[Rfam]
Shown here is a 138-nucleotide sequence from Geosporobacter ferrireducens, a member of the family "c-di-AMP riboswitch aptamer (ydaO/yuaA leader)".
This family represents a conserved RNA structure found upstream of the ydaO and yuaA genes in Bacillus subtilis and related genes in other bacteria. The ydaO/yuaA element is thought to act as a genetic 'off' switch for the ydaO and yuaA genes in its native state. It is believed that the element may be triggered during osmotic shock leading to activation of ydaO, a predicted amino acid transporter gene, and members of the yuaA-yubG operon which code for KtrA and KtrB K+ transporters.
Taxonomically the source falls in Geosporobacter (Bacteria, Bacillota, Peptostreptococcales, Thermotaleaceae).
The match comes from Rfam's covariance-model search (110 bits).
RNA sequence: UUUUUAUGUGCGCUGAAUUCUUUGAAAAAAAGAAGCGGGGGAACCAGUUCUUUGGGGUGAAUCUCUUUUUGAAGAGUAGGGUCAUCUUCUUUCGAUCCGAAUCCGUCAGCUAACCUCGUAAGCGUGGAAAGAGGAAGA
Numbered sequence: 001u002u003u004u005u006a007u008g009u010g011c012g013c014u015g016a017a018u019u020c021u022u023u024g025a026a027a028a029a030a031a032g033a034a035g036c037g038g039g040g041g042a043a044c045c046a047g048u049u050c051u052u053u054g055g056g057g058u059g060a061a062u063c064u065c066u067u068u069u070u071g072a073a074g075a076g077u078a079g080g081g082u083c084a085u086c087u088u089c090u091u092u093c094g095a096u097c098c099g100a101a102u103c104c105g106u107c108a109g110c111u112a113a114c115c116u117c118g119u120a121a122g123c124g125u126g127g128a129a130a131g132a133g134g135a136a137g138a
Base pairs, nucleotide, nucleotide: 011124012123013122014121018034019033020032021031022030023029035119036118037117038116039115040114045054046053055104056103057102063076064075065074066073079098080097081096082095